RNA sequence: UAACCGCGGCAAAGAAGCCGCGCUGAACCUACAGGAGUCAGCAGAGGCCAUAGUGCGGGAGUAUGGGACGUCAGAAACCGGAAGGGC
Dot-bracket structure: ((..((((((......)))))).))............((....)).(((......(((.....(.........)...)))....)))
Numbered sequence: 001u002a003a004c005c006g007c008g009g010c011a012a013a014g015a016a017g018c019c020g021c022g023c024u025g026a027a028c029c030u031a032c033a034g035g036a037g038u039c040a041g042c043a044g045a046g047g048c049c050a051u052a053g054u055g056c057g058g059g060a061g062u063a064u065g066g067g068a069c070g071u072c073a074g075a076a077a078c079c080g081g082a083a084g085g086g087c
Stems, first nucleotide, its partner, number of pairs: 001025002005022006038045002047087003056080003064074001
A member of the RNA family "Group II catalytic intron D1-D4-1" from Paenibacillus sp. UNCCL117, 87 nucleotides long. It scores 53 bits against the family's covariance model. Rfam describes the family as follows. Group II introns are found in rRNA, tRNA and mRNA of organelles in fungi, plants and protists, and also in mRNA in bacteria. The pairing is the family consensus, mapped onto this sequence.